Shown here is a 105-nucleotide RNA from Acanthisitta chloris, a member of the family "Small nucleolar RNA SNORD125". A search with the family's covariance model found it, with a score of 66 bits. A reference for the family is Yang et al. (2006), "snoSeeker: an advanced computational package for screening of guide and orphan snoRNA genes in the human genome", Nucleic Acids Res. The family is grouped with related families in Rfam's "SNORD61 clan". The family's RNA type in Rfam is C/D-box small nucleolar RNA.

RNA sequence: GCUGGGAACAGCCUCUUGUGAUGACCCUGCUCUCUCUGAUGGCUGUGGUGGUGAUGAGCAUCAAACCAAAGCCUCUAAGAAGUUGACUGAAGAGGCCAUUUCCUC
Numbered sequence: 001g002c003u004g005g006g007a008a009c010a011g012c013c014u015c016u017u018g019u020g021a022u023g024a025c026c027c028u029g030c031u032c033u034c035u036c037u038g039a040u041g042g043c044u045g046u047g048g049u050g051g052u053g054a055u056g057a058g059c060a061u062c063a064a065a066c067c068a069a070a071g072c073c074u075c076u077a078a079g080a081a082g083u084u085g086a087c088u089g090a091a092g093a094g095g096c097c098a099u100u101u102c103c104u105c
Stems, first nucleotide, its partner, number of pairs: 007100002011096007